[Rfam]
RNA: Actinobacteria sRNA Ms_IGR-7
RNA sequence: GAGAGAUGCCCUCCUGAGUUGGGGAUAUGGACCUUCGACAAGUCGUAUUAUCCCAGCCCAGAAGGGCAUUUCUUUUAUUCCCACGCCGCUGGAACCCAAACUACAUCGGUGGAUCCAG
Numbered sequence: 001g002a003g004a005g006a007u008g009c010c011c012u013c014c015u016g017a018g019u020u021g022g023g024g025a026u027a028u029g030g031a032c033c034u035u036c037g038a039c040a041a042g043u044c045g046u047a048u049u050a051u052c053c054c055a056g057c058c059c060a061g062a063a064g065g066g067c068a069u070u071u072c073u074u075u076u077a078u079u080c081c082c083a084c085g086c087c088g089c090u091g092g093a094a095c096c097c098a099a100a101c102u103a104c105a106u107c108g109g110u111g112g113a114u115c116c117a118g
Stems, first nucleotide, its partner, number of pairs: 002073011013061001015060002019056005025048002028045001031043002102113001104111002